[Rfam]
RNA: TPP riboswitch aptamer (THI element)
Organism: Thermomonospora curvata
RNA sequence: GCGGACGAGCGCGGGAGCCUGGCGAACCGGGCUGAGAGUGCGGCUGAGACGGCCGCUGACCGCUGGAACCUGACCGGGUAAUGCCGGCGUAGGGAGUAGUCGAAUCGCCAUGAC
Numbered sequence: 001g002c003g004g005a006c007g008a009g010c011g012c013g014g015g016a017g018c019c020u021g022g023c024g025a026a027c028c029g030g031g032c033u034g035a036g037a038g039u040g041c042g043g044c045u046g047a048g049a050c051g052g053c054c055g056c057u058g059a060c061c062g063c064u065g066g067a068a069c070c071u072g073a074c075c076g077g078g079u080a081a082u083g084c085c086g087g088c089g090u091a092g093g094g095a096g097u098a099g100u101c102g103a104a105u106c107g108c109c110a111u112g113a114c
Base pairs, nucleotide, nucleotide: 006102007101008100011063012062013061014060016057017032018031019030020029021028040056041055042054043053044052045051046050069093070092071091072090074087075086076085077084